[Rfam]
RNA sequence: AAAUAACCGGGAUGCAACGACCUCCACCCCACGUACGGUCACUUAGUGUGGAGCGAGCAAAUAGUGAGACCGCCCCGGCGGAGG
Dot-bracket structure: ...(..(((((.(((......((((((.(.......[[[[[[[..).))))))...)))...]]]]]..]]..)))))..)...
c-di-GMP-II-GAG riboswitch aptamer: an 84-nucleotide RNA from Deinococcus yavapaiensis. On this family, see Weinberg et al., Proc Natl Acad Sci U S A 2017: "Bioinformatic analysis of riboswitch structures uncovers variant classes with altered ligand specificity". Pairs were carried over by alignment from the consensus structure, which is taken from published work. Rfam links the family to the GO terms cyclic-di-GMP binding and regulation of gene expression.